[Rfam]
RNA sequence: GGCUCGGGAGCCGACCGGUGGGACGGUCGGCAGGUAUGGAGCCCCCCAAACCCCGUGAUCGCAAGCGGCGACCGGCCGUGGCCCGACGGCCCGGUCG
Numbered sequence: 001g002g003c004u005c006g007g008g009a010g011c012c013g014a015c016c017g018g019u020g021g022g023a024c025g026g027u028c029g030g031c032a033g034g035u036a037u038g039g040a041g042c043c044c045c046c047c048a049a050a051c052c053c054c055g056u057g058a059u060c061g062c063a064a065g066c067g068g069c070g071a072c073c074g075g076c077c078g079u080g081g082c083c084c085g086a087c088g089g090c091c092c093g094g095u096c097g
Stems, first nucleotide, its partner, number of pairs: 001043005010031008069097005074091005

The family of this 97-nucleotide RNA sequence from Rhodobaculum claviforme is "Rhodo-rpoB RNA". It is annotated as a cis-regulatory element. Taxonomically the source falls in Rhodobaculum (Bacteria, Pseudomonadati, Alphaproteobacteria, Paracoccaceae).